RNA sequence: GAACACCCGCAUGGUAAGGCGUAGCGAGCCACCAUUAGCGAGUCUUGGGUGUUAUCUGGUAACAGGUAAGGCUAAGCGUAGACAGUUAGGAAACAGGGUUGAAAUGCUAUUGAGCUCCGAAAUUUUACAAAGUCUCAGAGGCCGACGCAGUUUACCCAUGCGGAAGGCAACAUCACAGUAAGCGUUAGAGAAACGAUGCGAGUUUAUUGUGGCUCUGGCGGAGUCAGAGGGCC
Numbered sequence: 001g002a003a004c005a006c007c008c009g010c011a012u013g014g015u016a017a018g019g020c021g022u023a024g025c026g027a028g029c030c031a032c033c034a035u036u037a038g039c040g041a042g043u044c045u046u047g048g049g050u051g052u053u054a055u056c057u058g059g060u061a062a063c064a065g066g067u068a069a070g071g072c073u074a075a076g077c078g079u080a081g082a083c084a085g086u087u088a089g090g091a092a093a094c095a096g097g098g099u100u101g102a103a104a105u106g107c108u109a110u111u112g113a114g115c116u117c118c119g120a121a122a123u124u125u126u127a128c129a130a131a132g133u134c135u136c137a138g139a140g141g142c143c144g145a146c147g148c149a150g151u152u153u154a155c156c157c158a159u160g161c162g163g164a165a166g167g168c169a170a171c172a173u174c175a176c177a178g179u180a181a182g183c184g185u186u187a188g189a190g191a192a193a194c195g196a197u198g199c200g201a202g203u204u205u206a207u208u209g210u211g212g213c214u215c216u217g218g219c220g221g222a223g224u225c226a227g228a229g230g231g232c233c
Base pairs, nucleotide, nucleotide: 011035012034013033014032018030019029020028022201024199025198038086039085042083043082044081045080046078047077048073049072050071052069053068054067055066056065057064058063111227112225114224115223116222117221118220119219135218136217137216138215139214140213141168142167143166146162147161148160149159173212174211175210176209177208178207179206180205181204182203183202